[Rfam]
Nucleotides: 204
Base pairs, nucleotide, nucleotide: 001203002202003201004200009195010194011193012192013191021166022165023164024163027054028053029052030051032049038045039044056159057158058157061155062151063150064149065148066147067146074144075143076142077141078140079138080137081136082135083134084133086131087130093126094125096123097122098121099120102116103115104114105113107112169187170186171185172184173181174180
Number, partner (000 for none) and nucleotide at each position: 001203g002202g003201g004200u005000g006000a007000u008000g009195a010194u011193u012192a013191a014000a015000a016000a017000g018000a019000g020000a021166g022165a023164g024163g025000c026000u027054u028053g029052a030051g031000u032049g033000g034000g035000g036000a037000g038045u039044g040000u041000g042000a043000a044039c045038a046000a047000a048000a049032c050000u051030c052029u053028c054027a055000u056159g057158g058157g059000a060000u061155g062151a063150a064149g065148a066147a067146a068000a069000a070000a071000a072000a073000a074144a075143g076142c077141c078140c079138a080137a081136a082135u083134c084133g085000a086131a087130a088000u089000c090000g091000a092000a093126g094125g095000a096123g097122a098121a099120a100000u101000a102116a103115c104114a105113u106000u107112u108000g109000a110000u111000u112107a113105a114104u115103g116102u117000u118000u119000u120099u121098u122097u123096u124000c125094c126093c127000u128000u129000u130087u131086u132000a133084u134083g135082a136081u137080u138079u139000a140078g141077g142076g143075u144074u145000c146067u147066u148065u149064c150063u151062u152000u153000c154000a155061u156000c157058c158057c159056u160000a161000u162000c163024c164023c165022u166021c167000g168000a169187u170186g171185a172184c173181g174180g175000u176000c177000c178000u179000u180174c181173c182000a183000a184172g185171u186170u187169a188000c189000a190000c191013u192012u193011g194010a195009u196000a197000u198000g199000a200004g201003c202002c203001c204000u